The family of this 186-nucleotide sequence from Endozoicomonas sp. G2_1 is "Molybdenum/Tungsten riboswitch aptamer (Moco RNA motif)". Rfam links the family to the GO terms molybdenum ion binding, tungstate binding and regulation of gene expression. NCBI's taxonomy places the organism under Bacteria, Pseudomonadota, Gammaproteobacteria, Oceanospirillales, Endozoicomonas. A search with the family's covariance model found it, with a score of 72 bits.
[Rfam]
RNA sequence: CUGCAUUAUUUUCGCCGAGCUAUUCAUGCUAAGUCGUCAGUGAAGUAUUCACGCGAUAUGCCGGUCUAGCCGUGGUAGUGAUUUUGAAUACAGGCUCUUAUCCGCGUUCAAAAUUGCUAUCGCCAGGGUUAAUGAGGAAACGAGUUAGCCUCCCGACAUUUGGAAAGGUGAUAUGUUAACAGACAC
Numbered sequence: 001c002u003g004c005a006u007u008a009u010u011u012u013c014g015c016c017g018a019g020c021u022a023u024u025c026a027u028g029c030u031a032a033g034u035c036g037u038c039a040g041u042g043a044a045g046u047a048u049u050c051a052c053g054c055g056a057u058a059u060g061c062c063g064g065u066c067u068a069g070c071c072g073u074g075g076u077a078g079u080g081a082u083u084u085u086g087a088a089u090a091c092a093g094g095c096u097c098u099u100a101u102c103c104g105c106g107u108u109c110a111a112a113a114u115u116g117c118u119a120u121c122g123c124c125a126g127g128g129u130u131a132a133u134g135a136g137g138a139a140a141c142g143a144g145u146u147a148g149c150c151u152c153c154c155g156a157c158a159u160u161u162g163g164a165a166a167g168g169u170g171a172u173a174u175g176u177u178a179a180c181a182g183a184c185a186c
Stems, first nucleotide, its partner, number of pairs: 003180001012171005019070004025064001028061002033057004072123018126151008136141001152163002
Dot-bracket structure: ..(........(((((..((((..(..((...((((.................))))..))..)..)))).((((((((((((((((((................))))))))))))))))))..((((((((..(....)..))))))))((........))...)))))........)......